[Rfam]
RNA sequence: CUCAAUAGCCGGAGUUCUCCGGCACACAAAAAAGUCACCCUGUUCAGGGUA
Numbered sequence: 001c002u003c004a005a006u007a008g009c010c011g012g013a014g015u016u017c018u019c020c021g022g023c024a025c026a027c028a029a030a031a032a033a034g035u036c037a038c039c040c041u042g043u044u045c046a047g048g049g050u051a
Base pairs, nucleotide, nucleotide: 009022010021011020012019013018037050038049039048040047